The record is a 113-nucleotide RNA sequence from Pseudorhizobium pelagicum, which matches "Alphaproteobacterial ar15" in Rfam. NCBI's taxonomy places the organism under Bacteria, Pseudomonadota, Hyphomicrobiales, Rhizobiaceae, Pseudorhizobium. Pairs were carried over by alignment from the consensus structure. Rfam 15.1 lists 316 matches to the family in 177 species.
RNA sequence: AGUUGAUGCACACGGUGGCUUUCCUCCCAGUUCCACCGCAUCAGCUGUUCCCCUCUGGAGGUUUUUGACCUUCAUACCUAUAGGGCCCCGAAGCAAUUCGGUGGCCCUUUUUU
Numbered sequence: 001a002g003u004u005g006a007u008g009c010a011c012a013c014g015g016u017g018g019c020u021u022u023c024c025u026c027c028c029a030g031u032u033c034c035a036c037c038g039c040a041u042c043a044g045c046u047g048u049u050c051c052c053c054u055c056u057g058g059a060g061g062u063u064u065u066u067g068a069c070c071u072u073c074a075u076a077c078c079u080a081u082a083g084g085g086c087c088c089c090g091a092a093g094c095a096a097u098u099c100g101g102u103g104g105c106c107c108u109u110u111u112u113u
Stems, first nucleotide, its partner, number of pairs: 001046005007040003015036004056074007082108006088101004